A member of the RNA family "ASdes TB sRNA" from Actinoplanes aureus, 68 nucleotides long. NCBI's taxonomy places the organism under Bacteria, Bacillati, Actinomycetota, Actinomycetes, Actinoplanes.
RNA sequence: AGAGCGAUCGGGUCGACGGCGCGGGUCACGGUCAGAUAGUCGCGGAUGGCGAUCCCGUGCCGCCCCUC
Numbered sequence: 001a002g003a004g005c006g007a008u009c010g011g012g013u014c015g016a017c018g019g020c021g022c023g024g025g026u027c028a029c030g031g032u033c034a035g036a037u038a039g040u041c042g043c044g045g046a047u048g049g050c051g052a053u054c055c056c057g058u059g060c061c062g063c064c065c066c067u068c
Stems, first nucleotide, its partner, number of pairs: 004063003008059001012029002015027003035056001038053001040052004

Background:
By type it is a small RNA. The base pairs follow the family's consensus structure, which is taken from published work.